Shown here is a 394-nucleotide RNA sequence from Peribacillus faecalis, a member of the family "Bacterial RNase P class B".
Lineage of the source: Bacteria > Bacillati > Bacilli > Bacillaceae > Peribacillus.
The family's RNA type in Rfam is ribozyme.
Rfam describes the family as follows. Ribonuclease P (RNase P) is a ubiquitous endoribonuclease, found in archaea, bacteria and eukarya as well as chloroplasts and mitochondria. Its best characterised activity is the generation of mature 5'-ends of tRNAs by cleaving the 5'-leader elements of precursor-tRNAs. Cellular RNase Ps are ribonucleoproteins. RNA from bacterial RNase Ps retains its catalytic activity in the absence of the protein subunit, i.e. it is a ribozyme.
Its Rfam clan is "RNaseP clan".
[Rfam]
RNA sequence: ACGUUCGGGUAAUUGCUGCAAUUGCAUUAUGCAGAUUGUAGAGGAAAGUCCAUGCUCGCACAAGCUGAGAUGCUUGUAGUGUUCGUGCCUAGUGAAAAAAUAAGCUAGGGCAGCUUUGACGGCUGACGGCCGGGGAGCGACCUAAGUCCAUUCGGAUAUGGUCCAGUACCCUAUAAAAGUGCCACAGUGACGUAGCCUUGUCAGAAAUGGCAAGGGUGGAACGGGUAAACCCCACGAGCGAGAAACCCAAAUUUAGGUAGGGGCACCUUACACCUUGGAAAUGAACGAGGUAAAGGACAGGCAUAUGCCUGUAGAUAGAUGAUUACCGCCUUCUGUAUGAGACUGAAAAAAUCGGUCGUUUGCAAUACGAAGGAACAAAACAUGGCUUAUAGAG
Numbered sequence: 001a002c003g004u005u006c007g008g009g010u011a012a013u014u015g016c017u018g019c020a021a022u023u024g025c026a027u028u029a030u031g032c033a034g035a036u037u038g039u040a041g042a043g044g045a046a047a048g049u050c051c052a053u054g055c056u057c058g059c060a061c062a063a064g065c066u067g068a069g070a071u072g073c074u075u076g077u078a079g080u081g082u083u084c085g086u087g088c089c090u091a092g093u094g095a096a097a098a099a100a101u102a103a104g105c106u107a108g109g110g111c112a113g114c115u116u117u118g119a120c121g122g123c124u125g126a127c128g129g130c131c132g133g134g135g136a137g138c139g140a141c142c143u144a145a146g147u148c149c150a151u152u153c154g155g156a157u158a159u160g161g162u163c164c165a166g167u168a169c170c171c172u173a174u175a176a177a178a179g180u181g182c183c184a185c186a187g188u189g190a191c192g193u194a195g196c197c198u199u200g201u202c203a204g205a206a207a208u209g210g211c212a213a214g215g216g217u218g219g220a221a222c223g224g225g226u227a228a229a230c231c232c233c234a235c236g237a238g239c240g241a242g243a244a245a246c247c248c249a250a251a252u253u254u255a256g257g258u259a260g261g262g263g264c265a266c267c268u269u270a271c272a273c274c275u276u277g278g279a280a281a282u283g284a285a286c287g288a289g290g291u292a293a294a295g296g297a298c299a300g301g302c303a304u305a306u307g308c309c310u311g312u313a314g315a316u317a318g319a320u321g322a323u324u325a326c327c328g329c330c331u332u333c334u335g336u337a338u339g340a341g342a343c344u345g346a347a348a349a350a351a352u353c354g355g356u357c358g359u360u361u362g363c364a365a366u367a368c369g370a371a372g373g374a375a376c377a378a379a380a381c382a383u384g385g386c387u388u389a390u391a392g393a394g
Stems, first nucleotide, its partner, number of pairs: 004394003007390001008327007016041008046388003050385005055242005060077006083237005088109006110127001111125005128232002132171003139163004146157003179230002181226003196215008246262003266296004272291002297312006329373005335368004